This 128-nucleotide RNA from Desulfosporosinus orientis belongs to the Rfam family "SAM riboswitch aptamer (S box leader)". Rfam's curators write: The SAM riboswitch is found upstream of a number of genes which code for proteins involved in methionine or cysteine biosynthesis in Gram-positive bacteria.
RNA sequence: CUCUUAUCCGGAGUGGUGGAGGGACUAGCCCUAUGAAGCCCGGCAACCAGCUUGACGCGUAAAUCUAAUGACGAAGUCAGAGCAUGGUGCUAAUUCUUGCAGGAGAAGAUUUUCCUGGUAGAUAAGAG
Numbered sequence: 001c002u003c004u005u006a007u008c009c010g011g012a013g014u015g016g017u018g019g020a021g022g023g024a025c026u027a028g029c030c031c032u033a034u035g036a037a038g039c040c041c042g043g044c045a046a047c048c049a050g051c052u053u054g055a056c057g058c059g060u061a062a063a064u065c066u067a068a069u070g071a072c073g074a075a076g077u078c079a080g081a082g083c084a085u086g087g088u089g090c091u092a093a094u095u096c097u098u099g100c101a102g103g104a105g106a107a108g109a110u111u112u113u114c115c116u117g118g119u120a121g122a123u124a125a126g127a128g
Stems, first nucleotide, its partner, number of pairs: 001128008013041001015040003021031003025099001027097002042091004047087002050083004095120001100117006